Background
The family of this 135-nucleotide RNA from Sarcophilus harrisii is "Small nucleolar RNA SNORA9". The match comes from Rfam's covariance-model search (109 bits). Taxonomically the source falls in Sarcophilus (Eukaryota, Opisthokonta, Eumetazoa, Theria). Gene Ontology terms of the family: RNA processing and nucleolus.
[Rfam]
RNA sequence: CUGCAAGCUUUCCAGCAUGUCGGUGUCCUGUAUGACUCCAGACAUUCCUAAAGUCUUGCUAGAGCAAACAUGAGAUGGUUUGAGGCCUCGCUCUGCUCCGACUUCGGAGUGAGGUUAUAGAAAUCUUAGAUAUUA
Numbered sequence: 001c002u003g004c005a006a007g008c009u010u011u012c013c014a015g016c017a018u019g020u021c022g023g024u025g026u027c028c029u030g031u032a033u034g035a036c037u038c039c040a041g042a043c044a045u046u047c048c049u050a051a052a053g054u055c056u057u058g059c060u061a062g063a064g065c066a067a068a069c070a071u072g073a074g075a076u077g078g079u080u081u082g083a084g085g086c087c088u089c090g091c092u093c094u095g096c097u098c099c100g101a102c103u104u105c106g107g108a109g110u111g112a113g114g115u116u117a118u119a120g121a122a123a124u125c126u127u128a129g130a131u132a133u134u135a
Stems, first nucleotide, its partner, number of pairs: 003059005018044003023038001025036003071128005086114006093107003